[Rfam]
RNA sequence: CUGUUUCUUGGAGUUCCUCUGAACACUUCACACAUGAGGCUUAAUUAAUGCCAAUAAUGAGUCCUUUCCAUCAGUGAAGUGUUUGGGGGAACUUCAGGAUUCAA
Numbered sequence: 001c002u003g004u005u006u007c008u009u010g011g012a013g014u015u016c017c018u019c020u021g022a023a024c025a026c027u028u029c030a031c032a033c034a035u036g037a038g039g040c041u042u043a044a045u046u047a048a049u050g051c052c053a054a055u056a057a058u059g060a061g062u063c064c065u066u067u068c069c070a071u072c073a074g075u076g077a078a079g080u081g082u083u084u085g086g087g088g089g090a091a092c093u094u095c096a097g098g099a100u101u102c103a104a
Stems, first nucleotide, its partner, number of pairs: 006099004011094010022084002024081008034071002
A member of the RNA family "mir-395 microRNA precursor family" from Arachis hypogaea, 104 nucleotides long. For this family Rfam cites "Computational Identification of Plant MicroRNAs and Their Targets, Including a Stress-Induced miRNA" (Jones-Rhoades and Bartel, Mol Cell, 2004). From the family's description: mir-395 was identified in both Arabidopsis thaliana and Oryza sativa computationally and was later experimentally verified. mir-395 is thought to target mRNAs coding for ATP sulphurylases. The mature sequence is excised from the 3' arm of the hairpin. Rfam links the family to the GO terms RISC complex and miRNA-mediated post-transcriptional gene silencing. The match comes from Rfam's covariance-model search (66 bits). Lineage of the source: Eukaryota > Tracheophyta > Magnoliopsida > Mesangiospermae > Arachis.